[Rfam]
A member of the RNA family "Iron response element II" from Turnix velox, 31 nucleotides long. Its family is annotated with response to iron ion in the Gene Ontology. A reference for the family is Koeller et al. (1989), "A cytosolic protein binds to structural elements within the iron regulatory region of the transferrin receptor mRNA", Proc Natl Acad Sci U S A. It is annotated as a cis-regulatory element. IRE, TFRC, SLC40A1, SDHB, SLC11A2, CDC42BPA, ACO2, ALAS2_H.SAPIENS, CDC14A, EPAS1, ALAS2, qoxD, Hao1, NDUFS1, transferrin, Aconitate.

RNA sequence: ACUUCAUCUGCUUCAGUGAAAGCAAUGAUGA
Numbered sequence: 001a002c003u004u005c006a007u008c009u010g011c012u013u014c015a016g017u018g019a020a021a022g023c024a025a026u027g028a029u030g031a
Base pairs, nucleotide, nucleotide: 002030004028005027006026007025009024010023011022012021013020014018
Dot-bracket structure: .(.((((.((((((...).))))))))).).